U4atac minor spliceosomal RNA: a 124-nucleotide RNA sequence from Aotus nancymaae. Pairs were carried over by alignment from the consensus structure, which is taken from published work. Its family is annotated with U4atac snRNP, spliceosomal tri-snRNP complex assembly and pre-mRNA 5'-splice site binding in the Gene Ontology. NCBI's taxonomy places the organism under Eukaryota, Euteleostomi, Dipnotetrapodomorpha, Haplorrhini, Aotus. The match comes from Rfam's covariance-model search (95 bits).

RNA sequence: ACCAUCCUUUUCUUGGGGUUGCGCUACUGUCCCAUGAGCGCAUAGUGAGGGCAGUACUGCUAACCCUAAACACACACUGGCAUCAACUAUAGAUUUGCUUUACAUUGGUGCAAGUUUGGGAAAA
Number, nucleotide and partner (000 for none) at each position: 001a000002c000003c000004a000005u000006c018007c017008u016009u015010u000011u000012c000013u000014u000015g009016g008017g007018g006019u000020u000021g060022c059023g058024c000025u000026a055027c054028u053029g052030u051031c050032c049033c000034a000035u000036g000037a000038g046039c045040g000041c000042a000043u000044a000045g039046u038047g000048a000049g032050g031051g030052c029053a028054g027055u026056a000057c000058u023059g022060c021061u000062a000063a000064c000065c000066c000067u000068a000069a000070a000071c000072a000073c000074a000075c000076a000077c000078u000079g000080g111081c110082a109083u108084c107085a106086a000087c000088u102089a101090u000091a099092g098093a000094u000095u000096u000097g000098c092099u091100u000101u089102a088103c000104a000105u000106u085107g084108g083109u082110g081111c080112a000113a000114g000115u000116u000117u000118g000119g000120g000121a000122a000123a000124a000